RNA sequence: AUGGGUGCGUAAUCCGAGACUCGUAUAAUGCCGGGAAUAUGGCCCGGCAGUCUCUACGAGGCGACCGUAAAUCGCCUUGCUACGAGGUCGGGCAGGAACGUC
Numbered sequence: 001a002u003g004g005g006u007g008c009g010u011a012a013u014c015c016g017a018g019a020c021u022c023g024u025a026u027a028a029u030g031c032c033g034g035g036a037a038u039a040u041g042g043c044c045c046g047g048c049a050g051u052c053u054c055u056a057c058g059a060g061g062c063g064a065c066c067g068u069a070a071a072u073c074g075c076c077u078u079g080c081u082a083c084g085a086g087g088u089c090g091g092g093c094a095g096g097a098a099c100g101u102c
Stems, first nucleotide, its partner, number of pairs: 018088001020086006029049007058078007
This 102-nucleotide sequence from Alicyclobacillus acidocaldarius belongs to the Rfam family "Purine riboswitch aptamer". Pairs were carried over by alignment from the consensus structure, which is taken from published work.